Description
The record is a 138-nucleotide RNA sequence from Notechis scutatus, which matches "Small nucleolar RNA SNORA8" in Rfam. Its family is annotated with RNA processing and nucleolus in the Gene Ontology. The family is grouped with related families in Rfam's "SNORA8 clan". Rfam 15.1 lists 1,490 matches to the family in 610 species. The organism belongs to Notechis, within Eukaryota.

RNA sequence: CGCACUGUAUGGUAUCUGCAACCAACAGUUGUUCCUGAUGGCUUGUUCAAAAAACAGUGCGAGAUCAGUUCAGCAUGUGGCAUCGUUGGUUCUCAAGCUGCCGUGCUUGUGCAGCCUGGUAUUUUUGUUGAGACAAGU
Numbered sequence: 001c002g003c004a005c006u007g008u009a010u011g012g013u014a015u016c017u018g019c020a021a022c023c024a025a026c027a028g029u030u031g032u033u034c035c036u037g038a039u040g041g042c043u044u045g046u047u048c049a050a051a052a053a054a055c056a057g058u059g060c061g062a063g064a065u066c067a068g069u070u071c072a073g074c075a076u077g078u079g080g081c082a083u084c085g086u087u088g089g090u091u092c093u094c095a096a097g098c099u100g101c102c103g104u105g106c107u108u109g110u111g112c113a114g115c116c117u118g119g120u121a122u123u124u125u126u127g128u129u130g131a132g133a134c135a136a137g138u
Stems, first nucleotide, its partner, number of pairs: 002060006015053001017051001018046004023041001024039001026037003064126001067123003070119004079107005